[Rfam]
Nucleotides: 081
Stems, first nucleotide, its partner, number of pairs: 006050007015041002017069005026037004058076001060074003
Number, partner (000 for none) and nucleotide at each position: 001000a002000a003000g004000a005000u006050u007049a008048u009047g010046u011045g012044u013000u014000a015041c016040u017069g018068a019067c020066g021065a022000u023000a024000a025000a026037g027036u028035g029034g030000a031000a032000g033000a034029c035028c036027a037026c038000a039000a040016g041015g042000g043000a044012g045011c046010a047009c048008a049007u050006a051000u052000a053000a054000a055000a056000a057000a058076u059000a060074g061073c062072c063000g064000a065021u066020c067019g068018u069017c070000u071000g072062g073061g074060c075000a076058a077000a078000g079000a080000g081000g
Source information:
The record is an 81-nucleotide sequence from Aquibacillus koreensis, which matches "ZMP/ZTP riboswitch aptamer (pfl RNA motif)" in Rfam. The source organism's lineage runs through Bacteria, Bacillota, Bacilli, Caryophanales and Aquibacillus. The match comes from Rfam's covariance-model search (62 bits). Rfam 15.1 lists 3,295 matches to the family in 2,545 species. The base pairs follow the family's consensus structure, which is taken from published work.